[Rfam]
RNA sequence: AACCGGCGUACAACAAUGGGGACGUGUCCCCAAGGUGGUGCCGGGGGAAGCAAGCCACAGCAACAGCACUUUAAUGGUGGAAAGCUGAAAAAUCACGCGUCGGGUGGAGUUUGGUAGGUCACUUGUGAUUCGAAGAAGUCGGACCCG
Numbered sequence: 001a002a003c004c005g006g007c008g009u010a011c012a013a014c015a016a017u018g019g020g021g022a023c024g025u026g027u028c029c030c031c032a033a034g035g036u037g038g039u040g041c042c043g044g045g046g047g048a049a050g051c052a053a054g055c056c057a058c059a060g061c062a063a064c065a066g067c068a069c070u071u072u073a074a075u076g077g078u079g080g081a082a083a084g085c086u087g088a089a090a091a092a093u094c095a096c097g098c099g100u101c102g103g104g105u106g107g108a109g110u111u112u113g114g115u116a117g118g119u120c121a122c123u124u125g126u127g128a129u130u131c132g133a134a135g136a137a138g139u140c141g142g143a144c145c146c147g
Stems, first nucleotide, its partner, number of pairs: 003044006011038001013036002018031005046056002058087004067079004101147005107140002110137003117130005
RNA: RT-3 RNA